[Rfam]
RNA sequence: GUGGCACUCAAACUGUGGGGGCACUUUCUGCUCUCUGGUAAAAAAAAAAGUGCCGCCAUGUUUUGAGUGUUAC
Numbered sequence: 001g002u003g004g005c006a007c008u009c010a011a012a013c014u015g016u017g018g019g020g021g022c023a024c025u026u027u028c029u030g031c032u033c034u035c036u037g038g039u040a041a042a043a044a045a046a047a048a049a050g051u052g053c054c055g056c057c058a059u060g061u062u063u064u065g066a067g068u069g070u071u072a073c
Stems, first nucleotide, its partner, number of pairs: 004070009015059004020054008
RNA: mir-290 microRNA precursor family